RNA sequence: AAAUGUUUUUUCGAUAUAAAACACUCAUGUCGAUAAAACGAUUUGAUUUUUUU
Number, nucleotide and partner (000 for none) at each position: 001a000002a000003a000004u000005g000006u000007u000008u000009u000010u000011u033012c032013g031014a030015u029016a028017u027018a000019a000020a000021a000022c000023a000024c000025u000026c000027a017028u016029g015030u014031c013032g012033a011034u000035a000036a000037a000038a000039c000040g000041a000042u000043u000044u000045g000046a000047u000048u000049u000050u000051u000052u000053u000
Rfam assigns this 53-nucleotide sequence from Gossypium anomalum to the family "Plastid-atpF group II-D1 intron". The base pairs follow the family's consensus structure, which was predicted with LocARNA. Rfam 15.1 lists 1,372 matches to the family in 227 species. About the family: Plastid atpF is a non-coding RNA (ncRNA) recognised in plastids. It has been reported in the intron group II-D1 region of ATP synthase (atpF) genes. It scores 65 bits against the family's covariance model.